[Rfam]
RNA sequence: UGCCCAGUGAUGAUACCAUCCUGGCUCCUUGUGCAUUUUGAGGCUGGGGGUGACAACAUAGCUUUUCUUGGGACAGGCCAGCUGGACAACUGCUUGAGGCUUGAGGGCA
Numbered sequence: 001u002g003c004c005c006a007g008u009g010a011u012g013a014u015a016c017c018a019u020c021c022u023g024g025c026u027c028c029u030u031g032u033g034c035a036u037u038u039u040g041a042g043g044c045u046g047g048g049g050g051u052g053a054c055a056a057c058a059u060a061g062c063u064u065u066u067c068u069u070g071g072g073a074c075a076g077g078c079c080a081g082c083u084g085g086a087c088a089a090c091u092g093c094u095u096g097a098g099g100c101u102u103g104a105g106g107g108c109a
Stems, first nucleotide, its partner, number of pairs: 001109005

Shown here is a 109-nucleotide RNA sequence from Mus spicilegus, a member of the family "Small nucleolar RNA SNORD23". A search with the family's covariance model found it, with a score of 87 bits. By type it is a C/D-box small nucleolar RNA. On this family, see Galardi et al., Mol Cell Biol 2002: "Purified box C/D snoRNPs are able to reproduce site-specific 2'-O-methylation of target RNA in vitro".